The family of this 61-nucleotide sequence is "RAGATH-18 RNA". It is one of the family's seed sequences. By type it is a small RNA. About the family: Actinobacteria, Firmicutes, Fusobacteria, Thermotogae (1 example).
[Rfam]
RNA sequence: GCUGUGGAGCGUUACACAAACCGGAGUAGCUUCGGCAAAACGGGACGCUGUGAAGCAGUAA
Numbered sequence: 001g002c003u004g005u006g007g008a009g010c011g012u013u014a015c016a017c018a019a020a021c022c023g024g025a026g027u028a029g030c031u032u033c034g035g036c037a038a039a040a041c042g043g044g045a046c047g048c049u050g051u052g053a054a055g056c057a058g059u060a061a
Stems, first nucleotide, its partner, number of pairs: 001059005009048005021043003029036002